[Rfam]
RNA sequence: GGCUUUUUUCGCGGCCGCGGAGCUCGACCGCAAGCUGAGGUAACCGGGGUGCCGGUCGCGGUGCUCGUCGACUACAUCGAUGAGCACCGCGACCGGUUCGGGGUCGAGCCGAUCUGCCAUGUCCUGCGUGAUGCGGGCCUGAAGAUCGCCCCG
Numbered sequence: 001g002g003c004u005u006u007u008u009u010c011g012c013g014g015c016c017g018c019g020g021a022g023c024u025c026g027a028c029c030g031c032a033a034g035c036u037g038a039g040g041u042a043a044c045c046g047g048g049g050u051g052c053c054g055g056u057c058g059c060g061g062u063g064c065u066c067g068u069c070g071a072c073u074a075c076a077u078c079g080a081u082g083a084g085c086a087c088c089g090c091g092a093c094c095g096g097u098u099c100g101g102g103g104u105c106g107a108g109c110c111g112a113u114c115u116g117c118c119a120u121g122u123c124c125u126g127c128g129u130g131a132u133g134c135g136g137g138c139c140u141g142a143a144g145a146u147c148g149c150c151c152c153g
Stems, first nucleotide, its partner, number of pairs: 016060005099153005110148002113145003117141001
Dot-bracket structure: ...............(((((...................................)))))......................................(((((......((.(((.(.......................).))).)))))))

Annotation: This 153-nucleotide RNA sequence from Leucobacter massiliensis belongs to the Rfam family "ALIL pseudoknot". Lineage of the source: Bacteria > Bacillati > Actinomycetota > Microbacteriaceae > Leucobacter. The family's RNA type in Rfam is cis-regulatory element.